[Rfam]
RNA sequence: GAUUUCCCGGAGAAUGGACUCCGGGAAGAUAGAAUAAAAAGAAAUUAAUAUUUGAAUAGUAGGAAGAAACGAACAUCUUUCAA
Numbered sequence: 001g002a003u004u005u006c007c008c009g010g011a012g013a014a015u016g017g018a019c020u021c022c023g024g025g026a027a028g029a030u031a032g033a034a035u036a037a038a039a040a041g042a043a044a045u046u047a048a049u050a051u052u053u054g055a056a057u058a059g060u061a062g063g064a065a066g067a068a069a070c071g072a073a074c075a076u077c078u079u080u081c082a083a
Stems, first nucleotide, its partner, number of pairs: 004027009067080003
Shown here is an 83-nucleotide sequence from Gastrochilus japonicus, a member of the family "Plastid-rpl20 3UTR RNA".
The literature on the family includes a 2023 paper in Plant Commun by Richter et al., "Retrograde signaling in plants: A critical review focusing on the GUN pathway and beyond".
The organism belongs to Gastrochilus, within Eukaryota.
The family has 270 seed sequences and 587 matches in Rfam 15.1.
Rfam's curators write: Plastid rpl20 is a non-coding RNA (ncRNA) recognised in plastids. It was found in the three prime untranslated region (3UTR) of rpl20 gene, it presence in the 3UTR region sugest a role in transcript maduration.